RNA sequence: GCAUGGUGAUGCAUUGAUGGUGGGGCCUUCUCUCGGGGCCUGUCCUUGGGGACCCGUGUCAGAGGAGCGUGCAGCCUCCAACCGCUGCCCAGCCUCCUCGGUGGUGGGCUGUGAGCACUGAAGGGGGCUGUACAGUG
Numbered sequence: 001g002c003a004u005g006g007u008g009a010u011g012c013a014u015u016g017a018u019g020g021u022g023g024g025g026c027c028u029u030c031u032c033u034c035g036g037g038g039c040c041u042g043u044c045c046u047u048g049g050g051g052a053c054c055c056g057u058g059u060c061a062g063a064g065g066a067g068c069g070u071g072c073a074g075c076c077u078c079c080a081a082c083c084g085c086u087g088c089c090c091a092g093c094c095u096c097c098u099c100g101g102u103g104g105u106g107g108g109c110u111g112u113g114a115g116c117a118c119u120g121a122a123g124g125g126g127g128c129u130g131u132a133c134a135g136u137g
Stems, first nucleotide, its partner, number of pairs: 001059004005054003015048003019044002022041003026036001072130006083120002088115001090111006
This 137-nucleotide RNA sequence from Suricata suricatta belongs to the Rfam family "Small nucleolar RNA SNORA42/SNORA80 family". Rfam links the family to the GO terms RNA processing and nucleolus. From the family's description: The members of this family belong to the H/ACA class of snoRNAs that guide the sites of modification of uridines to pseudouridines. Human ACA42 (SNORA42) was cloned from HeLa cells by immunoprecipitation with anti-GAR1 antibody. Its is predicted to guide the pseudouridylation of residues U109 and U572 of 18S rRNA. ACA42 shares the same host gene with ACA26, ACA46, ACA50. This family also includes mammalian snoRNA ACA67 (SNORA80) which was identified by computational screening and its expression in mouse experimentally verified by Northern blot and primer extension analysis. ACA67 is proposed to guide the pseudouridylation of the same 18S rRNA residues as ACA42. A search with the family's covariance model found it, with a score of 82 bits. Rfam classes the family as an H/ACA-box small nucleolar RNA.